This 105-nucleotide RNA sequence from Nyctereutes procyonoides belongs to the Rfam family "mir-8834 microRNA precursor family".

RNA sequence: AGGAGGAACAACCCCAGUGGUGGCGGAAGGUCUGGAGCCCUGGAUUCAGCUCCCACAGUAACUACUGAGCUCUCCGUCUGCAGGGCCUGGAGGCUCCGGGGCUGG
Numbered sequence: 001a002g003g004a005g006g007a008a009c010a011a012c013c014c015c016a017g018u019g020g021u022g023g024c025g026g027a028a029g030g031u032c033u034g035g036a037g038c039c040c041u042g043g044a045u046u047c048a049g050c051u052c053c054c055a056c057a058g059u060a061a062c063u064a065c066u067g068a069g070c071u072c073u074c075c076g077u078c079u080g081c082a083g084g085g086c087c088u089g090g091a092g093g094c095u096c097c098g099g100g101g102c103u104g105g
Base pairs, nucleotide, nucleotide: 002097003096004095005094009089010088012085013084014083019078020077021076022075023074025072028071029070031068032067034065036063040058041057042056
A search with the family's covariance model found it, with a score of 66 bits.